[Rfam]
RNA sequence: CACCGAACCCUCUCACUACGGAUCGUGAGGCACGUACCUGCCUCUGAAAGGAUGACAUU
Numbered sequence: 001c002a003c004c005g006a007a008c009c010c011u012c013u014c015a016c017u018a019c020g021g022a023u024c025g026u027g028a029g030g031c032a033c034g035u036a037c038c039u040g041c042c043u044c045u046g047a048a049a050g051g052a053u054g055a056c057a058u059u
Stems, first nucleotide, its partner, number of pairs: 009051003013047003027044006
Annotation
Rfam assigns this 59-nucleotide RNA sequence from Bifidobacterium boum to the family "msiK RNA". By type it is a cis-regulatory element.